A member of the RNA family "mir-8356 microRNA precursor family" from Pristionchus pacificus, 62 nucleotides long.
RNA sequence: AAUUUGAGACUCGCAUGAUUGCAUAGUAUGAUGAAGAUGUAUCAUGUUGAUUCUCAAAUUCA
Numbered sequence: 001a002a003u004u005u006g007a008g009a010c011u012c013g014c015a016u017g018a019u020u021g022c023a024u025a026g027u028a029u030g031a032u033g034a035a036g037a038u039g040u041a042u043c044a045u046g047u048u049g050a051u052u053c054u055c056a057a058a059u060u061c062a
Base pairs, nucleotide, nucleotide: 001060002059003058004057005056006055007054008053009052011050012049013048014046015045016044017043018042019041021040022039023038024037
NCBI's taxonomy places the organism under Eukaryota, Eumetazoa, Chromadorea, Rhabditida, Pristionchus. The family's consensus secondary structure was predicted with RNAalifold. The sequence is in the family's curated seed alignment.